[Rfam]
RNA sequence: CUCCUGGGUGACCGUGGCUUUAGAUUGUUACUGUAGCAGCCGCAGAGAGCGGUAACAGUCUACAGCCAUGGUCGCUUGGGGCAG
Numbered sequence: 001c002u003c004c005u006g007g008g009u010g011a012c013c014g015u016g017g018c019u020u021u022a023g024a025u026u027g028u029u030a031c032u033g034u035a036g037c038a039g040c041c042g043c044a045g046a047g048a049g050c051g052g053u054a055a056c057a058g059u060c061u062a063c064a065g066c067c068a069u070g071g072u073c074g075c076u077u078g079g080g081g082c083a084g
Stems, first nucleotide, its partner, number of pairs: 012071002015068004023060010
RNA: mir-132 microRNA precursor family
Organism: Acipenser ruthenus